[Rfam]
RNA sequence: UAUCCCAUUUUAGUACCAUUCAUUCCGUCCACCACGAAUGUGUGGCUAUGCUAAUGGGAGAGAGAAACGCUGUCAUAGUCUGAAGGGGGGACUGGCCUUGUCCAUCCGUCCUAUAUGAAAUGACAGUACAUCGCUCG
Numbered sequence: 001u002a003u004c005c006c007a008u009u010u011u012a013g014u015a016c017c018a019u020u021c022a023u024u025c026c027g028u029c030c031a032c033c034a035c036g037a038a039u040g041u042g043u044g045g046c047u048a049u050g051c052u053a054a055u056g057g058g059a060g061a062g063a064g065a066a067a068c069g070c071u072g073u074c075a076u077a078g079u080c081u082g083a084a085g086g087g088g089g090g091a092c093u094g095g096c097c098u099u100g101u102c103c104a105u106c107c108g109u110c111c112u113a114u115a116u117g118a119a120a121u122g123a124c125a126g127u128a129c130a131u132c133g134c135u136c137g
Stems, first nucleotide, its partner, number of pairs: 004058004016045004072124004088112004